About this RNA:
This 179-nucleotide RNA sequence from Labilibaculum filiforme belongs to the Rfam family "Bacteroidales-1 6S-Bacteroidales RNA suggested". The literature on the family includes a 2020 paper in Nat Commun by Ryan et al., "A high-resolution transcriptome map identifies small RNA regulation of metabolism in the gut microbe Bacteroides thetaiotaomicron". Bacteroidales-1 was first reported in a comparative genomics-based approach of genome and metagenome sequences from Weinberg et al. 2010 In a high-resolution transcriptome map study of Bacteroides thetaiotaomicron, Ryan et al. 2020 report this sRNA as 6S RNA homologue of Bacteroides, in the study they obtain evidence of small product RNAs (pRNAs) related to 6S function.
[Rfam]
RNA sequence: UACCGCAUUAAUUAUCGAUUGUUAAACUCAACAUUUAUAGUAUACCGAGAAAGCUACAUGUUUGCUAAAGCGGGCCCCAACCUUCGGGUUGUUUCGGCACAGGGGAUACUUGAUCAGACUGGCACUCAAAUCCUGUCAUUUAGGAGUUUAAAAUCCUAUUAAUUAGUGCGGUUUUUUUA
Number, nucleotide and partner (000 for none) at each position: 001u000002a000003c000004c000005g000006c000007a000008u000009u000010a000011a000012u000013u000014a000015u000016c000017g000018a000019u000020u000021g000022u000023u000024a000025a000026a000027c000028u000029c000030a000031a000032c000033a000034u000035u000036u000037a000038u000039a000040g000041u000042a000043u000044a000045c000046c000047g000048a000049g000050a000051a000052a000053g123054c122055u121056a000057c000058a120059u000060g119061u118062u117063u116064g115065c000066u000067a000068a111069a110070g000071c000072g000073g000074g000075c105076c104077c103078c102079a000080a089081c088082c087083u000084u000085c000086g000087g082088g081089u080090u099091g098092u097093u000094u000095c000096g000097g092098c091099a090100c000101a000102g078103g077104g076105g075106a000107u000108a000109c000110u069111u068112g000113a000114u000115c064116a063117g062118a061119c060120u058121g055122g054123c053124a000125c000126u000127c000128a000129a000130a000131u000132c000133c000134u000135g000136u000137c000138a000139u000140u000141u000142a000143g000144g000145a000146g000147u000148u000149u000150a000151a000152a000153a000154u000155c000156c000157u000158a000159u000160u000161a000162a000163u000164u000165a000166g000167u000168g000169c000170g000171g000172u000173u000174u000175u000176u000177u000178u000179a000
Record summary: The base pairs follow the family's consensus structure, which is taken from published work.